[Rfam]
RNA sequence: AGUGACAAAGGGCAAACCCGUUGAAAGGCGGGGACGCAAAGCCACGGGUCUAAGGUUGCAGUAAAUGCAGCUAUGACAGCCGGGUUGCCAAA
Numbered sequence: 001a002g003u004g005a006c007a008a009a010g011g012g013c014a015a016a017c018c019c020g021u022u023g024a025a026a027g028g029c030g031g032g033g034a035c036g037c038a039a040a041g042c043c044a045c046g047g048g049u050c051u052a053a054g055g056u057u058g059c060a061g062u063a064a065a066u067g068c069a070g071c072u073a074u075g076a077c078a079g080c081c082g083g084g085u086u087g088c089c090a091a092a
Stems, first nucleotide, its partner, number of pairs: 012037002017032006040086004045082003048077003055071006
RNA: c-di-GMP-I riboswitch aptamer